[Rfam]
RNA sequence: GGAGAUGGCUAGGCAAUCGCUCUUGUGAAGAUAGCUGAGAGAGGAAAGUCCGGGCUCCGUAGAGUAAAGAGCCGGUUAAUAGCCGGGCGCUGUGAGGCGACGGAAAGUGCAGCAGAAAAUAUACCGCCUCUUUUUUAGAGGUAAGGGUGAAAUGGUGAGGUAAGAGCUCACCGCCUUGGUGGUAACACUCAAGGGCAUGGAAAACCCCUCUUGGAGCAAGACCAAAUAGGCAAGCGUUGAGGUGACUCGCUGAGCUUGCGGGUAGGUUGCUUGAGGUGGCCAGUAAUGGUCAUCCCAGAUGUAUGAUUGUCCUAGACAGAACCCGGCUUAUAGGCUGUCUUUUCCC
Numbered sequence: 001g002g003a004g005a006u007g008g009c010u011a012g013g014c015a016a017u018c019g020c021u022c023u024u025g026u027g028a029a030g031a032u033a034g035c036u037g038a039g040a041g042a043g044g045a046a047a048g049u050c051c052g053g054g055c056u057c058c059g060u061a062g063a064g065u066a067a068a069g070a071g072c073c074g075g076u077u078a079a080u081a082g083c084c085g086g087g088c089g090c091u092g093u094g095a096g097g098c099g100a101c102g103g104a105a106a107g108u109g110c111a112g113c114a115g116a117a118a119a120u121a122u123a124c125c126g127c128c129u130c131u132u133u134u135u136u137a138g139a140g141g142u143a144a145g146g147g148u149g150a151a152a153u154g155g156u157g158a159g160g161u162a163a164g165a166g167c168u169c170a171c172c173g174c175c176u177u178g179g180u181g182g183u184a185a186c187a188c189u190c191a192a193g194g195g196c197a198u199g200g201a202a203a204a205c206c207c208c209u210c211u212u213g214g215a216g217c218a219a220g221a222c223c224a225a226a227u228a229g230g231c232a233a234g235c236g237u238u239g240a241g242g243u244g245a246c247u248c249g250c251u252g253a254g255c256u257u258g259c260g261g262g263u264a265g266g267u268u269g270c271u272u273g274a275g276g277u278g279g280c281c282a283g284u285a286a287u288g289g290u291c292a293u294c295c296c297a298g299a300u301g302u303a304u305g306a307u308u309g310u311c312c313u314a315g316a317c318a319g320a321a322c323c324c325g326g327c328u329u330a331u332a333g334g335c336u337g338u339c340u341u342u343u344c345c346c
Stems, first nucleotide, its partner, number of pairs: 001342010011331001012311007020041006046329003050326005055216004062248004067212005072086005087101001088099004102207002107205002110200001124146002126142006154172006173196001174194005179188003220268004230259006241251003275294008
The record is a 346-nucleotide sequence from Candidatus Ichthyocystis hellenicum, which matches "Bacterial RNase P class A" in Rfam. Rfam links the family to the GO terms dimeric ribonuclease P complex, ribonuclease P activity and tRNA processing. Rfam classes the family as a ribozyme.